[Rfam]
RNA: MIR5387 microRNA precursor family
RNA sequence: UGGUAACACCAACUGGGACUAAAGGUCCCUCCCCAACGGCUCCAGUGUCAGGCGCUGUCGGGGAGGGACCUUUAGUCCCGGUUGGUGUUACCAA
Numbered sequence: 001u002g003g004u005a006a007c008a009c010c011a012a013c014u015g016g017g018a019c020u021a022a023a024g025g026u027c028c029c030u031c032c033c034c035a036a037c038g039g040c041u042c043c044a045g046u047g048u049c050a051g052g053c054g055c056u057g058u059c060g061g062g063g064a065g066g067g068a069c070c071u072u073u074a075g076u077c078c079c080g081g082u083u084g085g086u087g088u089u090a091c092c093a094a
Stems, first nucleotide, its partner, number of pairs: 003091025029065002032062003036058002043051001046050001
Dot-bracket structure: ..(((((((((((((((((((((((((.((.(((.((.....(..(...)).....)).))).)).)))))))))))))))))))))))))...